Shown here is a 113-nucleotide sequence from Anaerococcus nagyae, a member of the family "FMN riboswitch aptamer (RFN element)".
RNA sequence: CAAAUUCUUCAGGGCGGAGUGCAAGUCUCCACCGGCAGUAAAGUCUGCGAGCGUAAGCUGAUUAGGCGUGAUUCCUAAACCGACAGUUAUAGUCUGGAUGAGAGAAGAAAUAU
Numbered sequence: 001c002a003a004a005u006u007c008u009u010c011a012g013g014g015c016g017g018a019g020u021g022c023a024a025g026u027c028u029c030c031a032c033c034g035g036c037a038g039u040a041a042a043g044u045c046u047g048c049g050a051g052c053g054u055a056a057g058c059u060g061a062u063u064a065g066g067c068g069u070g071a072u073u074c075c076u077a078a079a080c081c082g083a084c085a086g087u088u089a090u091a092g093u094c095u096g097g098a099u100g101a102g103a104g105a106a107g108a109a110a111u112a113u
Stems, first nucleotide, its partner, number of pairs: 003111001005109006017029003031093002033082002035048004043080002051058002062078005084096003
It scores 106 bits against the family's covariance model.